[Rfam]
RNA sequence: ACAUCGAUGUCGGGAGAACCAGACAACUGGUGCCGAAGGAGCAACCGCCUCGGAAACUCUCAGGCCAAAGGACCGACAUAGCUGA
Number, nucleotide and partner (000 for none) at each position: 001a000002c000003a000004u000005c000006g000007a079008u078009g077010u076011c075012g074013g073014g000015a000016g000017a000018a000019c030020c029021a028022g027023a000024c000025a000026a000027c022028u021029g020030g019031u000032g065033c064034c063035g061036a060037a000038g000039g059040a058041g057042c000043a000044a000045c052046c000047g000048c000049c000050u000051c000052g045053g000054a000055a000056a000057c041058u040059c039060u036061c035062a000063g034064g033065c032066c000067a000068a000069a000070g000071g000072a000073c013074c012075g011076a010077c009078a008079u007080a000081g000082c000083u000084g000085a000
The record is an 85-nucleotide sequence from Litoreibacter roseus, which matches "Glycine riboswitch aptamer" in Rfam. A search with the family's covariance model found it, with a score of 62 bits. Taxonomically the source falls in Litoreibacter (Bacteria, Pseudomonadati, Pseudomonadota, Roseobacteraceae).